[Rfam]
RNA sequence: AUACCUACCUGGGAGGGGAGAUCCCAUGAUCGUGAAGGUGGUUUCCCAAGGCCAGGCUUAUCCACUGAACUCCAGAUGUGCUGACCCCUAUCAUUUCCCCAGAUGUGGGAAAAGCAACUGUAUCAUUUGUGGUCGUGGGAGAUUGUGCGCUCACUUUCUCCUG
Numbered sequence: 001a002u003a004c005c006u007a008c009c010u011g012g013g014a015g016g017g018g019a020g021a022u023c024c025c026a027u028g029a030u031c032g033u034g035a036a037g038g039u040g041g042u043u044u045c046c047c048a049a050g051g052c053c054a055g056g057c058u059u060a061u062c063c064a065c066u067g068a069a070c071u072c073c074a075g076a077u078g079u080g081c082u083g084a085c086c087c088c089u090a091u092c093a094u095u096u097c098c099c100c101a102g103a104u105g106u107g108g109g110a111a112a113a114g115c116a117a118c119u120g121u122a123u124c125a126u127u128u129g130u131g132g133u134c135g136u137g138g139g140a141g142a143u144u145g146u147g148c149g150c151u152c153a154c155u156u157u158c159u160c161c162u163g
Base pairs, nucleotide, nucleotide: 012121014119015118016047017046018045019044020043021042024041025040026039027038048089050087051086055082056081057080059078060077061076062075091116094112095111096110098108099107137162138161139160140159141158142157145154146153147152
Dot-bracket structure: ...........(.((((((((..((((..........))))))))))(.((...(((.((((............)))).)))...)).).(..(((.((.......)).)))...).)).)...............((((((..(((....)))..)))))).
Rfam assigns this 163-nucleotide sequence from Myotis brandtii to the family "U1 spliceosomal RNA". On this family, see Zwieb, Nucleic Acids Res 1997: "The uRNA database". Clan: U1 clan. It is annotated as a spliceosomal small nuclear RNA.